RNA sequence: AAAAUCGGAAUAGCGCCCGGGCAGCUUUGCUGCUGACGAGGAGGACGGUCAUCGAUCAUCGGCGGAUACCGUCCCGGACACUGAAGUGUUCGUUACACCGGAUGUUAAAACCCGCAAGCGAUUGCGGGGACAGAGCACCGGUCGAUAAUUGU
Numbered sequence: 001a002a003a004a005u006c007g008g009a010a011u012a013g014c015g016c017c018c019g020g021g022c023a024g025c026u027u028u029g030c031u032g033c034u035g036a037c038g039a040g041g042a043g044g045a046c047g048g049u050c051a052u053c054g055a056u057c058a059u060c061g062g063c064g065g066a067u068a069c070c071g072u073c074c075c076g077g078a079c080a081c082u083g084a085a086g087u088g089u090u091c092g093u094u095a096c097a098c099c100g101g102a103u104g105u106u107a108a109a110a111c112c113c114g115c116a117a118g119c120g121a122u123u124g125c126g127g128g129g130a131c132a133g134a135g136c137a138c139c140g141g142u143c144g145a146u147a148a149u150u151g152u
Base pairs, nucleotide, nucleotide: 020034021033022032023031024030025029043074044073045072046071047070052062053061054060055059075092076091077090078089079088080087097142098141099140100139101138103137111128112127113126114125115124116123117122
Shown here is a 152-nucleotide sequence from Lacicoccus alkaliphilus, a member of the family "glmS glucosamine-6-phosphate activated ribozyme aptamer". The family's RNA type in Rfam is riboswitch. Taxonomically the source falls in Lacicoccus alkaliphilus (Bacteria, Bacillati, Bacilli, Salinicoccaceae).